The family of this 257-nucleotide RNA sequence from Streptomyces sp. Act143 is "Streptomyces sRNA 4677".
It scores 211 bits against the family's covariance model.
The literature on the family includes a 2014 paper in PLoS One by Hindra et al., "Complex intra-operonic dynamics mediated by a small RNA in Streptomyces coelicolor".
Rfam's curators write: Located in the intergenic region between anti-sigma factor SCO4677 gene and a putative regulatory protein gene SCO4676. scr4677 expression requires the SCO4677 activity and scr4677 sRNA itself seem to affect the levels of the SCO4676-associated transcripts.
Pairs were carried over by alignment from the consensus structure.
RNA sequence: CGCUGCGGUGAAAGGGGCGCCCUUUCCGAAGGACCACGACGGUGAAAGGACCCCACCAAGCCCCACCCCUCCCGCCCGCGGCAGCCGCUCACCCGCUCGGGUGAACAUCACCAACUGGGCUGGAUUUCGGGCCGGUUGCUUGCUCUACGCUCGCCGCAGCAGCACAGGGCAACACAACCGCAGACAUGCAACGGCCCUCGCCGGGACUGGCAUCCCGAUGCGAGGGCCUGACCACCAAGGAAGAAGAGACCUUCCCG
Numbered sequence: 001c002g003c004u005g006c007g008g009u010g011a012a013a014g015g016g017g018c019g020c021c022c023u024u025u026c027c028g029a030a031g032g033a034c035c036a037c038g039a040c041g042g043u044g045a046a047a048g049g050a051c052c053c054c055a056c057c058a059a060g061c062c063c064c065a066c067c068c069c070u071c072c073c074g075c076c077c078g079c080g081g082c083a084g085c086c087g088c089u090c091a092c093c094c095g096c097u098c099g100g101g102u103g104a105a106c107a108u109c110a111c112c113a114a115c116u117g118g119g120c121u122g123g124a125u126u127u128c129g130g131g132c133c134g135g136u137u138g139c140u141u142g143c144u145c146u147a148c149g150c151u152c153g154c155c156g157c158a159g160c161a162g163c164a165c166a167g168g169g170c171a172a173c174a175c176a177a178c179c180g181c182a183g184a185c186a187u188g189c190a191a192c193g194g195c196c197c198u199c200g201c202c203g204g205g206a207c208u209g210g211c212a213u214c215c216c217g218a219u220g221c222g223a224g225g226g227c228c229u230g231a232c233c234a235c236c237a238a239g240g241a242a243g244a245a246g247a248g249a250c251c252u253u254c255c256c257g
Stems, first nucleotide, its partner, number of pairs: 007236004016076004089104006119155001121153003193228005199222003203216004239255005

The family's RNA type in Rfam is small RNA. The organism belongs to Streptomyces, within Bacteria.